A member of the RNA family "U4 spliceosomal RNA" from Gorilla gorilla, 139 nucleotides long. It is annotated as a spliceosomal small nuclear RNA. About the family: U4 small nuclear RNA (U4 snRNA) is a component of the major U2-dependent spliceosome.
RNA sequence: AGUUUUGUGCAGUGGCAGCAUCAUAGCCAGUGAGGUUUAUCUGAGGAGUGAUUAUUGCUGAUUGAAAACUUUUCCCGAUACCCCGCCAUGAUGGCUUGAAAUAUAGUUGGCGUUGGCAUUUUUUGAGUCUGUAUGGAGA
Numbered sequence: 001a002g003u004u005u006u007g008u009g010c011a012g013u014g015g016c017a018g019c020a021u022c023a024u025a026g027c028c029a030g031u032g033a034g035g036u037u038u039a040u041c042u043g044a045g046g047a048g049u050g051a052u053u054a055u056u057g058c059u060g061a062u063u064g065a066a067a068a069c070u071u072u073u074c075c076c077g078a079u080a081c082c083c084c085g086c087c088a089u090g091a092u093g094g095c096u097u098g099a100a101a102u103a104u105a106g107u108u109g110g111c112g113u114u115g116g117c118a119u120u121u122u123u124u125g126a127g128u129c130u131g132u133a134u135g136g137a138g139a
Base pairs, nucleotide, nucleotide: 020052021051022050023049024048027046028045034042035041085117086116087115088113089112090111092109093108094107095106096105128139129138130137